Rfam assigns this 52-nucleotide RNA sequence from Lentivirus humimdef1 to the family "HIV Ribosomal frameshift signal". Gene Ontology term of the family: viral translational frameshifting. The base pairs follow the family's consensus structure, which is taken from published work. For this family Rfam cites "Structure of the HIV-1 frameshift site RNA bound to a small molecule inhibitor of viral replication" (Marcheschi et al., ACS Chem Biol, 2011). NCBI's taxonomy places the organism under Viruses, Riboviria, Ortervirales, Lentivirus, Lentivirus humimdef1. Rfam describes the family as follows. This family represents the HIV Ribosomal frameshift signal.

[Rfam]
RNA sequence: UUUUUUGGGGAAAAUCUGGCCUUCCCACAAAGGGAGGCCAGGAAAUUUCCUU
Numbered sequence: 001u002u003u004u005u006u007g008g009g010g011a012a013a014a015u016c017u018g019g020c021c022u023u024c025c026c027a028c029a030a031a032g033g034g035a036g037g038c039c040a041g042g043a044a045a046u047u048u049c050c051u052u
Base pairs, nucleotide, nucleotide: 008052009051010050012048013047014046015042016041017040018039019038020037021036022035023034024033025032